[Rfam]
RNA: mir-981 microRNA precursor family
Organism: Amphibalanus amphitrite
RNA sequence: UUUGCUGCCUUUCGGGUUUCACGGUGUUCGAACCCAUAUUUGAGUUGGUUCGUUGUCGUCGAAACCUGCAAGGGAGCGAA
Numbered sequence: 001u002u003u004g005c006u007g008c009c010u011u012u013c014g015g016g017u018u019u020c021a022c023g024g025u026g027u028u029c030g031a032a033c034c035c036a037u038a039u040u041u042g043a044g045u046u047g048g049u050u051c052g053u054u055g056u057c058g059u060c061g062a063a064a065c066c067u068g069c070a071a072g073g074g075a076g077c078g079a080a
Stems, first nucleotide, its partner, number of pairs: 001080006013068008030051005